[Rfam]
RNA sequence: GUAAGCUAAAGCGCAGUUUACGGUGAAAAUAUUUUUUUUACUGAGGAAAUUCCACACACCAUAUUGAAACAUGAUGCUCUUAAUUGGCAUACAUCGAGAGUUGUGACCCUGUCGGAGAAACGAUACAAUAGGCUAUAAUUUGGCGAUAAUAGAUGAUGCGAUUGGGCUGAUUAGCCGGACUUUAGUAAUUGAUGAAACGAACAAUCCAUGUGGUGCAAAAGUAAACAUUGUAGUUGUACAAAGGUGACUUGCUUAGAUAAAUGCUGUGUUUGAAACAUGAAGUGGAUUACUCUUAGUAUAC
Number, nucleotide and partner (000 for none) at each position: 001g301002u300003a299004a000005g297006c296007u295008a294009a293010a291011g290012c268013g267014c266015a265016g264017u263018u000019u000020a000021c043022g042023g041024u040025g039026a038027a037028a036029a035030u000031a000032u000033u000034u000035u029036u028037u027038u026039u025040a024041c023042u022043g021044a000045g000046g000047a000048a288049a287050u286051u000052c285053c284054a283055c282056a000057c215058a214059c213060c212061a000062u000063a000064u000065u000066g000067a000068a000069a211070c210071a209072u208073g207074a090075u089076g088077c087078u086079c000080u000081u000082a000083a000084u000085u000086g078087g077088c076089a075090u074091a104092c103093a102094u000095c100096g000097a000098g000099a000100g095101u000102u093103g092104u091105g206106a205107c000108c000109c000110u203111g202112u201113c000114g000115g000116a000117g000118a000119a000120a000121c000122g000123a000124u000125a000126c191127a190128a189129u000130a000131g000132g000133c185134u184135a183136u000137a181138a000139u000140u000141u000142g000143g000144c000145g000146a000147u000148a163149a162150u000151a000152g000153a000154u000155g000156a000157u000158g000159c000160g000161a000162u149163u148164g000165g000166g000167c000168u000169g000170a000171u000172u000173a000174g000175c000176c000177g000178g000179a000180c000181u137182u000183u135184a134185g133186u000187a000188a000189u128190u127191g126192a000193u000194g000195a000196a000197a000198c000199g000200a000201a112202c111203a110204a000205u106206c105207c073208a072209u071210g070211u069212g060213g059214u058215g057216c000217a000218a000219a250220a249221g248222u247223a000224a000225a000226c000227a000228u241229u240230g239231u238232a237233g000234u000235u000236g000237u232238a231239c230240a229241a228242a000243g000244g000245u000246g000247a222248c221249u220250u219251g000252c000253u000254u000255a000256g000257a000258u000259a000260a000261a000262u000263g017264c016265u015266g014267u013268g012269u000270u000271u000272g000273a000274a000275a000276c000277a000278u000279g000280a000281a000282g055283u054284g053285g052286a050287u049288u048289a000290c011291u010292c000293u009294u008295a007296g006297u005298a000299u003300a002301c001